Small nucleolar RNA Z266: a 97-nucleotide RNA sequence from Rhodamnia argentea. It is annotated as a C/D-box small nucleolar RNA. NCBI's taxonomy places the organism under Eukaryota, Streptophytina, Embryophyta, Mesangiospermae, Rhodamnia. The family has 11 seed sequences and 719 matches in Rfam 15.1. The family's consensus secondary structure was predicted with PFOLD.
RNA sequence: CUGUGGUAAGAAUGAUGAAUAAAAUGGAUUUGUGAAGGGAUAAUAUCCCUUGUGAUCUUAACUCCUUUAUGCUUAUUGAUAUUCUGACUUGCCGCUU
Number, nucleotide and partner (000 for none) at each position: 001c000002u000003g095004u094005g093006g092007u091008a090009a089010g088011a000012a000013u000014g000015a000016u000017g000018a000019a000020u000021a000022a000023a000024a000025u000026g000027g000028a000029u000030u000031u000032g000033u000034g000035a000036a000037g000038g000039g000040a000041u000042a000043a000044u000045a000046u000047c000048c000049c000050u000051u000052g000053u000054g000055a000056u000057c000058u000059u000060a000061a000062c000063u000064c000065c000066u000067u000068u000069a000070u000071g000072c000073u000074u000075a000076u000077u000078g000079a000080u000081a000082u000083u000084c000085u000086g000087a000088c010089u009090u008091g007092c006093c005094g004095c003096u000097u000